[Rfam]
RNA sequence: UUGUUUGCGGAUGUGGCACCAUCAAGAUUCACAUGCAAAUGCACGGUGGUGAUGAUAAUACCCUUCUUCCCCUUCCAAACUUCAUCGCCAAAGAUGUUUGAAAGUGAGAAUCUUGAUGAUGCUGCAUCGGCAAUAAA
Numbered sequence: 001u002u003g004u005u006u007g008c009g010g011a012u013g014u015g016g017c018a019c020c021a022u023c024a025a026g027a028u029u030c031a032c033a034u035g036c037a038a039a040u041g042c043a044c045g046g047u048g049g050u051g052a053u054g055a056u057a058a059u060a061c062c063c064u065u066c067u068u069c070c071c072c073u074u075c076c077a078a079a080c081u082u083c084a085u086c087g088c089c090a091a092a093g094a095u096g097u098u099u100g101a102a103a104g105u106g107a108g109a110a111u112c113u114u115g116a117u118g119a120u121g122c123u124g125c126a127u128c129g130g131c132a133a134u135a136a137a
Stems, first nucleotide, its partner, number of pairs: 010128009020118011032106002
RNA: mir-172 microRNA precursor family